[Rfam]
RNA: epsC RNA
RNA sequence: AGGUUACCCCUGCUGAACCUUUAUCACUGCGGGGACUCGAUCAUGCUGUGGGCCAGCGCGCCUUAGACGUGAAUCGUCGAAGGUGUGAUGCGAGGGCGGGUUAGAUGCCCA
Dot-bracket structure: [[[[...((((((...]]]]........)))))).((((((((((((..((((......))))..((((.....))))...)))))))).))))...((((.....)))).
Numbered sequence: 001a002g003g004u005u006a007c008c009c010c011u012g013c014u015g016a017a018c019c020u021u022u023a024u025c026a027c028u029g030c031g032g033g034g035a036c037u038c039g040a041u042c043a044u045g046c047u048g049u050g051g052g053c054c055a056g057c058g059c060g061c062c063u064u065a066g067a068c069g070u071g072a073a074u075c076g077u078c079g080a081a082g083g084u085g086u087g088a089u090g091c092g093a094g095g096g097c098g099g100g101u102u103a104g105a106u107g108c109c110c111a
Stems, first nucleotide, its partner, number of pairs: 001020004008034006036094004040089008050063004066078004098110004